[Rfam]
RNA sequence: UAGUGUUACAGCUCUUUUAGAAUUUGUCUAGCACGUUUUCUGGUUUCUACCAGAAAGCCCCC
Numbered sequence: 001u002a003g004u005g006u007u008a009c010a011g012c013u014c015u016u017u018u019a020g021a022a023u024u025u026g027u028c029u030a031g032c033a034c035g036u037u038u039u040c041u042g043g044u045u046u047c048u049a050c051c052a053g054a055a056a057g058c059c060c061c062c
Base pairs, nucleotide, nucleotide: 035058036057037056038055039054040053041052042051043050044049
The family of this 62-nucleotide RNA sequence from Echinops telfairi is "U7 small nuclear RNA". Animal histone pre-mRNAs are spliced by a different mechanism than nuclear pre-mRNAs and self-splicing introns. The sequence is in the family's curated seed alignment. Pairs were carried over by alignment from the consensus structure, which was predicted with PFOLD.